[Rfam]
RNA sequence: AAUGGAGGAUGAUAAAUCAUAUUUUUUCUCUUGAUUUUCAGAUUUUUCCUCUUGAAAAAAUUCAAAUUCAACUAAAAAUACUGAAAAUCAGGAGGAAAAAUCUGAUUUGUCAUUCUUCUAUU
Numbered sequence: 001a002a003u004g005g006a007g008g009a010u011g012a013u014a015a016a017u018c019a020u021a022u023u024u025u026u027u028c029u030c031u032u033g034a035u036u037u038u039c040a041g042a043u044u045u046u047u048c049c050u051c052u053u054g055a056a057a058a059a060a061u062u063c064a065a066a067u068u069c070a071a072c073u074a075a076a077a078a079u080a081c082u083g084a085a086a087a088u089c090a091g092g093a094g095g096a097a098a099a100a101u102c103u104g105a106u107u108u109g110u111c112a113u114u115c116u117u118c119u120a121u122u
Base pairs, nucleotide, nucleotide: 001122002121003120004119005118006116007115008114009113010112011111012110013109014108015107016106017105018104019103021101022100023099024098025097026096028094029093030092031091032090033089034088035087036086037085038084040082041081044078045077046076047075
Shown here is a 122-nucleotide RNA from Gossypium hirsutum, a member of the family "MIR7504 microRNA precursor family". Taxonomically the source falls in Gossypium (Eukaryota, Embryophyta, Euphyllophyta, Malvales). Its family is annotated with RISC complex and miRNA-mediated post-transcriptional gene silencing in the Gene Ontology. Pairs were carried over by alignment from the consensus structure, which was predicted with RNAalifold.